[Rfam]
About this RNA
This 72-nucleotide sequence from Elioraea tepida belongs to the Rfam family "Makes More Granules Regulator RNA (mmgR)". Lineage of the source: Bacteria > Pseudomonadati > Pseudomonadota > Acetobacterales > Elioraea. By type it is a small RNA. Rfam's curators write: SuhB later renamed mmgR (makes more granules regulator) was a putative non-coding RNA found multiple times in the Agrobacterium tumefaciens genome and related alpha-proteobacteria. The pairing is the family consensus, mapped onto this sequence. Its Rfam clan is "suhB sRNA clan".
RNA sequence: CCUUGUUGCCUUUCUUGGACGUUUCCUCCCUAAACUUGGCCGCCCCUCGGGGCGGCCUUUUUUUCGCGUUCA
Numbered sequence: 001c002c003u004u005g006u007u008g009c010c011u012u013u014c015u016u017g018g019a020c021g022u023u024u025c026c027u028c029c030c031u032a033a034a035c036u037u038g039g040c041c042g043c044c045c046c047u048c049g050g051g052g053c054g055g056c057c058u059u060u061u062u063u064u065c066g067c068g069u070u071c072a
Base pairs, nucleotide, nucleotide: 008020010018011017038057039056040055041054042053043052044051045050